[Rfam]
RNA: Small nucleolar RNA U6-53/MBII-28
RNA sequence: CACUCAUGAUGACUUGCCAUGCUAAUACCGAGGCACUGAGAGGGUCAACUGGCCCUGAACUCGGGUGUCUGUGAGUUACGUUGCUUCUCACGGGAAGACCUGAGGUGU
Numbered sequence: 001c002a003c004u005c006a007u008g009a010u011g012a013c014u015u016g017c018c019a020u021g022c023u024a025a026u027a028c029c030g031a032g033g034c035a036c037u038g039a040g041a042g043g044g045u046c047a048a049c050u051g052g053c054c055c056u057g058a059a060c061u062c063g064g065g066u067g068u069c070u071g072u073g074a075g076u077u078a079c080g081u082u083g084c085u086u087c088u089c090a091c092g093g094g095a096a097g098a099c100c101u102g103a104g105g106u107g108u
Stems, first nucleotide, its partner, number of pairs: 001107004041056004